[Rfam]
RNA sequence: AUUUGUGAUGUCUGUGGUAACUCUGUAGGUAUUCCUUCGAACAAGAUGCAAGAACAAACAAAAAUGAAAGCCCUUCUACGAGUGAUUAGCCUGGUCGUGAUUAGCGUGGUGGUGAUUAUUAUCCCACCGUGCGGGGCUGCACUUGGACGAGGAAAGGCUUAGAAAUCAAGCCUUAACGAACUAAGACCCCCGCACCGAAAGGUCCGGGGGUUUUUUUAUGACUUAAAAACAAUAACGAGGAGCAGAAAAUGGUUACUAGCAUAAAAUUCUGUUUCUUACGAU
Numbered sequence: 001a002u003u004u005g006u007g008a009u010g011u012c013u014g015u016g017g018u019a020a021c022u023c024u025g026u027a028g029g030u031a032u033u034c035c036u037u038c039g040a041a042c043a044a045g046a047u048g049c050a051a052g053a054a055c056a057a058a059c060a061a062a063a064a065u066g067a068a069a070g071c072c073c074u075u076c077u078a079c080g081a082g083u084g085a086u087u088a089g090c091c092u093g094g095u096c097g098u099g100a101u102u103a104g105c106g107u108g109g110u111g112g113u114g115a116u117u118a119u120u121a122u123c124c125c126a127c128c129g130u131g132c133g134g135g136g137c138u139g140c141a142c143u144u145g146g147a148c149g150a151g152g153a154a155a156g157g158c159u160u161a162g163a164a165a166u167c168a169a170g171c172c173u174u175a176a177c178g179a180a181c182u183a184a185g186a187c188c189c190c191c192g193c194a195c196c197g198a199a200a201g202g203u204c205c206g207g208g209g210g211u212u213u214u215u216u217u218a219u220g221a222c223u224u225a226a227a228a229a230c231a232a233u234a235a236c237g238a239g240g241a242g243c244a245g246a247a248a249a250u251g252g253u254u255a256c257u258a259g260c261a262u263a264a265a266a267u268u269c270u271g272u273u274u275c276u277u278a279c280g281a282u
Stems, first nucleotide, its partner, number of pairs: 001006001026061001028059001030057001032054003036050001037046002072240003077234002080230001086226003089222001091220001094217001096106003108128005114123003129148002132145004151177001156173002159170002183214010194203003241273007249262003
RNA: Soft rot Enterobacteriaceae Rev 39 5'UTR
Organism: Kluyvera cryocrescens